[Rfam]
RNA sequence: UAUUCCUCCCUUAUCCUCACGUCCCCGUGUAGCCCUUCGUGUUGCCACUGACCGACCGCCUUUCGCGGUCGGUUUUUUU
Numbered sequence: 001u002a003u004u005c006c007u008c009c010c011u012u013a014u015c016c017u018c019a020c021g022u023c024c025c026c027g028u029g030u031a032g033c034c035c036u037u038c039g040u041g042u043u044g045c046c047a048c049u050g051a052c053c054g055a056c057c058g059c060c061u062u063u064c065g066c067g068g069u070c071g072g073u074u075u076u077u078u079u
Stems, first nucleotide, its partner, number of pairs: 016032002036051002039048003052072008
Rfam assigns this 79-nucleotide sequence from Erwinia tasmaniensis to the family "Hfq-regulated sRNA 13". For this family Rfam cites "Genome-wide identification of Hfq-regulated small RNAs in the fire blight pathogen Erwinia amylovora discovered small RNAs with virulence regulatory function" (Zeng and Sundin, BMC Genomics, 2014). Rfam links the family to the GO term protein binding. The base pairs follow the family's consensus structure, which was predicted with RNAfold. The match comes from Rfam's covariance-model search (58 bits).